The record is a 118-nucleotide RNA sequence from Verminephrobacter eiseniae, which matches "Guanidine-I riboswitch aptamer" in Rfam.
[Rfam]
RNA sequence: CAGAAGGGUCGCUAGGGUUCCGGUCGCACACAUCGAUGCGGCGCUGGUCCGAGAGCAACCGGCCUCAGGCGCGCACGACCGCGCCCAGGCUCCACGGCGGGACAAAAGCCCGGGAGAU
Numbered sequence: 001c002a003g004a005a006g007g008g009u010c011g012c013u014a015g016g017g018u019u020c021c022g023g024u025c026g027c028a029c030a031c032a033u034c035g036a037u038g039c040g041g042c043g044c045u046g047g048u049c050c051g052a053g054a055g056c057a058a059c060c061g062g063c064c065u066c067a068g069g070c071g072c073g074c075a076c077g078a079c080c081g082c083g084c085c086c087a088g089g090c091u092c093c094a095c096g097g098c099g100g101g102a103c104a105a106a107a108g109c110c111c112g113g114g115a116g117a118u
Stems, first nucleotide, its partner, number of pairs: 007060003011056002015050002020047002022044001023042006061091005068084001093113001095116001099111003
Its family is annotated with regulation of gene expression in the Gene Ontology.